[Rfam]
RNA: Ribosomal S15 leader
Organism: Alloalcanivorax dieselolei
RNA sequence: GACGGCAGCUAUAAAUAUGCAUGGCUGACCGUGACCAAUAUUGCAUAUUGGAGUGUAUGAAAUGGCUUUGAGCGUCGAAAAGAAAGCGGAAAUCCUGAAGGAAUUCGGUCGUAAGGAA
Numbered sequence: 001g002a003c004g005g006c007a008g009c010u011a012u013a014a015a016u017a018u019g020c021a022u023g024g025c026u027g028a029c030c031g032u033g034a035c036c037a038a039u040a041u042u043g044c045a046u047a048u049u050g051g052a053g054u055g056u057a058u059g060a061a062a063u064g065g066c067u068u069u070g071a072g073c074g075u076c077g078a079a080a081a082g083a084a085a086g087c088g089g090a091a092a093u094c095c096u097g098a099a100g101g102a103a104u105u106c107g108g109u110c111g112u113a114a115g116g117a118a
Stems, first nucleotide, its partner, number of pairs: 007026006048071006